[Rfam]
RNA sequence: CCCAAAGUGCUGGGAUAACCCUUACCUGUUUCUCCUUUGCAGGGCAGAUAGAACAUGAUAAUUGGAGAUGCAUGAAACGUGAUUAAUCUCUCUGUAUAAUCAGGACUUGCAACACACUUAAUUUUUUUUUUAAU
Numbered sequence: 001c002c003c004a005a006a007g008u009g010c011u012g013g014g015a016u017a018a019c020c021c022u023u024a025c026c027u028g029u030u031u032c033u034c035c036u037u038u039g040c041a042g043g044g045c046a047g048a049u050a051g052a053a054c055a056u057g058a059u060a061a062u063u064g065g066a067g068a069u070g071c072a073u074g075a076a077a078c079g080u081g082a083u084u085a086a087u088c089u090c091u092c093u094g095u096a097u098a099a100u101c102a103g104g105a106c107u108u109g110c111a112a113c114a115c116a117c118u119u120a121a122u123u124u125u126u127u128u129u130u131u132a133a134u
Base pairs, nucleotide, nucleotide: 026047027046028045030044031043032042033041035039074092075091077089079087080085096124098122100120102118103117
RNA: U8 small nucleolar RNA